[Rfam]
RNA sequence: GUGACAUGAUGUAUCACAUAUUUGCUACUUCAGACGGGCAACCGAAUGAGACACAAAAAAUAUCACCAAGAUCUCUGAUCAC
Numbered sequence: 001g002u003g004a005c006a007u008g009a010u011g012u013a014u015c016a017c018a019u020a021u022u023u024g025c026u027a028c029u030u031c032a033g034a035c036g037g038g039c040a041a042c043c044g045a046a047u048g049a050g051a052c053a054c055a056a057a058a059a060a061u062a063u064c065a066c067c068a069a070g071a072u073c074u075c076u077g078a079u080c081a082c
Stems, first nucleotide, its partner, number of pairs: 001082004
RNA: Small nucleolar RNA SNORD24
Organism: Ogataea parapolymorpha